[Rfam]
RNA sequence: GAUUAGAUAAAGUACUCGUAUACAGAUUGGAUAUUGACAAAACAUUGAAUUGGCGAAGUAGGGAACUUUUCCCCUCAGCGAAGGCCGAAAAGAGGCUAGCCAUGCCCUUAGUAGGACGAGCAAAAUGAGGGGACUAGCGGUAGCAGUGAGUUCAUUGGAUGGCCUAAUCCCUGAGUACAGGGAAGUCGUCAAUGGUUCGACACUCCAUCAGUUGAGGAGUCUCGAGAUGCCAUGUGGACGAGGGCAUGCCCAAGGCACAUCUUAACCUAUGCGGGGGUUGCAUAGGCAAAAGCACCACUCACGGUGUUGUGGACACAGCCUGAUAGGGUGUAGCAGAGACCUGCUAUUCCGCUAGUAAAAACUCUGCUGUACAUGGCAC
Numbered sequence: 001g002a003u004u005a006g007a008u009a010a011a012g013u014a015c016u017c018g019u020a021u022a023c024a025g026a027u028u029g030g031a032u033a034u035u036g037a038c039a040a041a042a043c044a045u046u047g048a049a050u051u052g053g054c055g056a057a058g059u060a061g062g063g064a065a066c067u068u069u070u071c072c073c074c075u076c077a078g079c080g081a082a083g084g085c086c087g088a089a090a091a092g093a094g095g096c097u098a099g100c101c102a103u104g105c106c107c108u109u110a111g112u113a114g115g116a117c118g119a120g121c122a123a124a125a126u127g128a129g130g131g132g133a134c135u136a137g138c139g140g141u142a143g144c145a146g147u148g149a150g151u152u153c154a155u156u157g158g159a160u161g162g163c164c165u166a167a168u169c170c171c172u173g174a175g176u177a178c179a180g181g182g183a184a185g186u187c188g189u190c191a192a193u194g195g196u197u198c199g200a201c202a203c204u205c206c207a208u209c210a211g212u213u214g215a216g217g218a219g220u221c222u223c224g225a226g227a228u229g230c231c232a233u234g235u236g237g238a239c240g241a242g243g244g245c246a247u248g249c250c251c252a253a254g255g256c257a258c259a260u261c262u263u264a265a266c267c268u269a270u271g272c273g274g275g276g277g278u279u280g281c282a283u284a285g286g287c288a289a290a291a292g293c294a295c296c297a298c299u300c301a302c303g304g305u306g307u308u309g310u311g312g313a314c315a316c317a318g319c320c321u322g323a324u325a326g327g328g329u330g331u332a333g334c335a336g337a338g339a340c341c342u343g344c345u346a347u348u349c350c351g352c353u354a355g356u357a358a359a360a361a362c363u364c365u366g367c368u369g370u371a372c373a374u375g376g377c378a379c
Stems, first nucleotide, its partner, number of pairs: 001015001071132006078121002084117001085115002090109003094106003133356007140347007147317002150314006157262005162256004168183006186241005192233005197225004202220005242251003266286009292307005318329004331369008